[Rfam]
RNA sequence: AGCAAGCGCACUCUGUGUCACAUUCGACAACCUCAUGUGAAUACAAUUUGUAAUUUUGCCAGAGUAAGGUGUAGCUUCUUAUCCAUGUGAUAAGAUUCCUAACAAGCUAAUCACUUUGACGAUGUCUAAGACAGCUUUUU
Number, nucleotide and partner (000 for none) at each position: 001a000002g059003c058004a057005a056006g055007c000008g000009c000010a051011c050012u000013c000014u045015g044016u043017g000018u040019c039020a038021c037022a036023u035024u000025c000026g034027a033028c000029a000030a000031c000032c000033u027034c026035a023036u022037g021038u020039g019040a018041a000042u000043a016044c015045a014046a000047u000048u000049u000050g011051u010052a000053a000054u000055u006056u005057u004058g003059c002060c000061a000062g000063a000064g000065u000066a138067a137068g000069g000070u133071g132072u131073a000074g127075c124076u000077u000078c000079u000080u000081a000082u119083c118084c000085a116086u000087g114088u113089g112090a111091u110092a000093a000094g107095a000096u000097u000098c000099c000100u000101a000102a000103c000104a000105a000106g000107c094108u000109a000110a091111u090112c089113a088114c087115u000116u085117u000118g083119a082120c000121g000122a000123u000124g075125u000126c000127u074128a000129a000130g000131a072132c071133a070134g000135c000136u000137u067138u066139u000140u000
A member of the RNA family "Small nucleolar RNA psi18S-841/snoR66" from Drosophila willistoni, 140 nucleotides long. Rfam links the family to the GO terms RNA processing and nucleolus. psi18S-841 is a member of the H/ACA class of snoRNA. This family is responsible for guiding the modification of uridine 841 in Drosophila 18S rRNA to pseudouridine. The match comes from Rfam's covariance-model search (88 bits). Rfam classes the family as an H/ACA-box small nucleolar RNA.